[Rfam]
RNA sequence: GAGUGAUGUGAUGGUAUACCAUCUUUCGGGACUGACUCUUGAGAUGGAGAGUUCCUUUCUGACUUACUGAUCACUG
Number, nucleotide and partner (000 for none) at each position: 001g000002a075003g074004u073005g072006a071007u000008g000009u000010g000011a000012u000013g000014g000015u000016a000017u000018a000019c000020c000021a000022u000023c000024u000025u000026u000027c000028g000029g000030g000031a000032c000033u000034g000035a000036c000037u000038c000039u000040u000041g000042a000043g000044a000045u000046g000047g000048a000049g000050a000051g000052u000053u000054c000055c000056u000057u000058u000059c000060u000061g000062a000063c000064u000065u000066a000067c000068u000069g000070a000071u006072c005073a004074c003075u002076g000
RNA: Small nucleolar RNA SNORD2